The record is a 95-nucleotide sequence from Variovorax sp. PBS-H4, which matches "SAH (S-adenosyl-L-homocysteine) riboswitch aptamer" in Rfam. NCBI's taxonomy places the organism under Bacteria, Pseudomonadati, Burkholderiales, Comamonadaceae, Variovorax.
RNA sequence: GCUCCCAAGGAGCGUUGCAGCGCGGCCCUCCCAUUCGAGGGCGCCGCGUCAGGCUUGGGCUUCCAUCUUCUGGAGUGCAACGACGCUCGCCUGAA
Numbered sequence: 001g002c003u004c005c006c007a008a009g010g011a012g013c014g015u016u017g018c019a020g021c022g023c024g025g026c027c028c029u030c031c032c033a034u035u036c037g038a039g040g041g042c043g044c045c046g047c048g049u050c051a052g053g054c055u056u057g058g059g060c061u062u063c064c065a066u067c068u069u070c071u072g073g074a075g076u077g078c079a080a081c082g083a084c085g086c087u088c089g090c091c092u093g094a095a
Stems, first nucleotide, its partner, number of pairs: 004059005021048006

A search with the family's covariance model found it, with a score of 50 bits. The family's consensus secondary structure is taken from published work.